RNA: Plastid-psbA-4 3UTR RNA
Organism: Klainedoxa gabonensis
RNA sequence: AAAGAAAAGGAGCAAUAGUCAAUUUCCUGUCCUAUCGAGGGGUUGGCUAUUGCUCCUUUU
Numbered sequence: 001a002a003a004g005a006a007a008a009g010g011a012g013c014a015a016u017a018g019u020c021a022a023u024u025u026c027c028u029g030u031c032c033u034a035u036c037g038a039g040g041g042g043u044u045g046g047c048u049a050u051u052g053c054u055c056c057u058u059u060u
Stems, first nucleotide, its partner, number of pairs: 006059012021044002024041003028037002